The record is a 76-nucleotide RNA from Streptomonospora litoralis, which matches "6C RNA" in Rfam.

RNA sequence: GCGGUACCGGCUCUACCCCCCCAGAGCCGGGACCGUCCGACGGCCCCCGCUAUCCCCCCGGCGGGGGCCGUCGUCA
Numbered sequence: 001g002c003g004g005u006a007c008c009g010g011c012u013c014u015a016c017c018c019c020c021c022c023a024g025a026g027c028c029g030g031g032a033c034c035g036u037c038c039g040a041c042g043g044c045c046c047c048c049g050c051u052a053u054c055c056c057c058c059c060g061g062c063g064g065g066g067g068c069c070g071u072c073g074u075c076a
Stems, first nucleotide, its partner, number of pairs: 002035004007030007039072013
The family's RNA type in Rfam is cis-regulatory element.
NCBI's taxonomy places the organism under Bacteria, Actinomycetes, Streptosporangiales, Nocardiopsidaceae, Streptomonospora.